[Rfam]
RNA sequence: GAAGCGUCAACCCCGCUCCGUUUCGGCGGAUCAGACGGGGAGCGUCUGUCGGUAACGGCGGACUGUG
Numbered sequence: 001g002a003a004g005c006g007u008c009a010a011c012c013c014c015g016c017u018c019c020g021u022u023u024c025g026g027c028g029g030a031u032c033a034g035a036c037g038g039g040g041a042g043c044g045u046c047u048g049u050c051g052g053u054a055a056c057g058g059c060g061g062a063c064u065g066u067g
Stems, first nucleotide, its partner, number of pairs: 011040005018029004044063008
Dot-bracket structure: ..........(((((..((((....))))......)))))...((((((((....))))))))....

Notes
Shown here is a 67-nucleotide RNA sequence from Catellatospora sp. IY07-71, a member of the family "Transposase-2 RNA". The family's consensus secondary structure is taken from published work. The organism belongs to Catellatospora, within Bacteria. It scores 58 bits against the family's covariance model.